[Rfam]
RNA sequence: GAGUUAAAGGCACUGGUAGGUUAAGGUGAAAAACUGUAGCCAAAGCGAAAGCGAGUCUGAAGAGGGCGCGAAUCAGUGUUUUUAGACCCGAACCCGGGUGAUCUAACCAUGUCCAGGAUGAAGCUUGGGUAACACCAAGUGGAGGUCCGAACCGACCGAUGUUGAAAAAUCGGCGGAUGAGGUGUGGUUAGGGGUGAAAUGCCAAUCGAACCCGGAGCUAGCUGGUU
Numbered sequence: 001g002a003g004u005u006a007a008a009g010g011c012a013c014u015g016g017u018a019g020g021u022u023a024a025g026g027u028g029a030a031a032a033a034c035u036g037u038a039g040c041c042a043a044a045g046c047g048a049a050a051g052c053g054a055g056u057c058u059g060a061a062g063a064g065g066g067c068g069c070g071a072a073u074c075a076g077u078g079u080u081u082u083u084a085g086a087c088c089c090g091a092a093c094c095c096g097g098g099u100g101a102u103c104u105a106a107c108c109a110u111g112u113c114c115a116g117g118a119u120g121a122a123g124c125u126u127g128g129g130u131a132a133c134a135c136c137a138a139g140u141g142g143a144g145g146u147c148c149g150a151a152c153c154g155a156c157c158g159a160u161g162u163u164g165a166a167a168a169a170u171c172g173g174c175g176g177a178u179g180a181g182g183u184g185u186g187g188u189u190a191g192g193g194g195u196g197a198a199a200u201g202c203c204a205a206u207c208g209a210a211c212c213c214g215g216a217g218c219u220a221g222c223u224g225g226u227u
Stems, first nucleotide, its partner, number of pairs: 005084013019041004025035003045052002055067004087225002090222001094215006103191011114179001116148004123140006152176003156173005193203003